This 74-nucleotide RNA sequence from Halicephalobus sp. NKZ332 belongs to the Rfam family "mir-252 microRNA precursor family". On this family, see Li et al., BMC Genomics 2009: "Direct sequencing and expression analysis of a large number of miRNAs in Aedes aegypti and a multi-species survey of novel mosquito miRNAs". The match comes from Rfam's covariance-model search (59 bits). Its family is annotated with miRNA-mediated post-transcriptional gene silencing and RISC complex in the Gene Ontology.

RNA sequence: AGCUGGUUCUAAGUAGUAGUGCCGCAGGUAAUAAUAAUUCGGUUUUACCUGAUCAUUACUGCUUAAAAUAAGCC
Numbered sequence: 001a002g003c004u005g006g007u008u009c010u011a012a013g014u015a016g017u018a019g020u021g022c023c024g025c026a027g028g029u030a031a032u033a034a035u036a037a038u039u040c041g042g043u044u045u046u047a048c049c050u051g052a053u054c055a056u057u058a059c060u061g062c063u064u065a066a067a068a069u070a071a072g073c074c
Stems, first nucleotide, its partner, number of pairs: 002073003006069002010065010025051006